The family of this 129-nucleotide RNA sequence from Muntiacus reevesi is "Small nucleolar RNA SNORA11". Pairs were carried over by alignment from the consensus structure, which was predicted with RNAalifold. On this family, see Gu et al., Nucleic Acids Res 2005: "A novel experimental approach for systematic identification of box H/ACA snoRNAs from eukaryotes". Gene Ontology terms of the family: nucleolus and RNA processing. The source organism's lineage runs through Eukaryota, Sarcopterygii, Amniota, Boreoeutheria and Muntiacus. A search with the family's covariance model found it, with a score of 110 bits. Rfam's curators write: U107 (SNORA11) is a member of the H/ACA class of snoRNAs that guide the sites of modification of uridines to pseudouridines. This snoRNA was identified by RT-PCR from blood cells and its expression confirmed by Northern blot analysis. There is no predicted target for this guide snRNA.

[Rfam]
RNA sequence: GGGGUGUGCUCAGAGCAGGGGGCCUGAAGAAAUGGCUUGUUUGUUUAUAACACACCCGACAGGAACCUGGGUUCACUGUGAUGCGGAGCACAAAUGUGUGGCCUUCCUGUGAACAGAAACCCGACUUGU
Numbered sequence: 001g002g003g004g005u006g007u008g009c010u011c012a013g014a015g016c017a018g019g020g021g022g023c024c025u026g027a028a029g030a031a032a033u034g035g036c037u038u039g040u041u042u043g044u045u046u047a048u049a050a051c052a053c054a055c056c057c058g059a060c061a062g063g064a065a066c067c068u069g070g071g072u073u074c075a076c077u078g079u080g081a082u083g084c085g086g087a088g089c090a091c092a093a094a095u096g097u098g099u100g101g102c103c104u105u106c107c108u109g110u111g112a113a114c115a116g117a118a119a120c121c122c123g124a125c126u127u128g129u
Stems, first nucleotide, its partner, number of pairs: 002057007013046007021038001022036003070122002073119001077115003082111002085104002089100004